[Rfam]
RNA sequence: UCAUCAGAUGGGAUAAUCCUUACCGGUUCCUCCUUAUGGAGGGCAGUUUAGCAAAGGAUGAUUGGAGUUUGCGUGAUACAUGAUUAUAUGUCUCUGCAUAAUCAGGACUUGCGACACCCUGAUUGCUCCUAUCUGAU
Number, nucleotide and partner (000 for none) at each position: 001u000002c000003a000004u000005c000006a000007g000008a000009u000010g000011g000012g000013a000014u000015a000016a000017u000018c000019c000020u000021u000022a000023c000024c046025g000026g044027u000028u043029c042030c041031u040032c039033c038034u000035u000036a000037u000038g033039g032040a031041g030042g029043g028044c026045a000046g024047u000048u000049u000050a000051g000052c000053a000054a000055a000056g000057g000058a000059u000060g000061a000062u000063u000064g000065g000066a000067g000068u000069u000070u000071g000072c000073g000074u000075g094076a093077u000078a091079c090080a089081u086082g000083a000084u000085u000086a081087u000088a000089u080090g079091u078092c000093u076094c075095u000096g000097c000098a000099u125100a124101a123102u122103c121104a120105g119106g118107a000108c000109u000110u000111g000112c000113g000114a000115c000116a000117c000118c106119c105120u104121g103122a102123u101124u100125g099126c000127u000128c000129c000130u000131a000132u000133c000134u000135g000136a000137u000
RNA: U8 small nucleolar RNA